RNA sequence: GAUCCCUUACUACAACUCAAACCAAUCAAUUAUCAAAAUGAAAACCCCCUAGGGAUCUG
Numbered sequence: 001g002a003u004c005c006c007u008u009a010c011u012a013c014a015a016c017u018c019a020a021a022c023c024a025a026u027c028a029a030u031u032a033u034c035a036a037a038a039u040g041a042a043a044a045c046c047c048c049c050u051a052g053g054g055a056u057c058u059g
Base pairs, nucleotide, nucleotide: 001057002056003055004053005052
Description:
Class I RNA from Dictyostelium: a 59-nucleotide RNA from Cavenderia fasciculata. About the family: Dictyostelium Class I RNA was first reported for Aspegren et al. 2004 in Dictyostelium discoideum. Sucgang et al. 2011 identify putative homologs of Class I RNA in D. discoideum and D. purpureum. Avesson et al. 2011 report that Class I RNA present a down regulation during the development of social amoeba Dictyostelium discoideum, they also found that deletion of one of the Class I RNAs, DdR-21, results in aberrant development. Kjellin et al. 2020 report an extended number of expressed Class I RNA genes in class Dictyostelia, in their analysis they remark that Class I RNA appear to be unique to dictyostelid social amoebas, and they hypothesise that Class I RNAs were involved in evolution of multicellularity in Dictyostelia. The family's RNA type in Rfam is non-coding RNA gene. It is one of the family's seed sequences. The literature on the family includes a 2004 paper in Nucleic Acids Res by Aspegren et al., "Novel non-coding RNAs in Dictyostelium discoideum and their expression during development". The family's consensus secondary structure is taken from published work. The organism belongs to Cavenderia, within Eukaryota.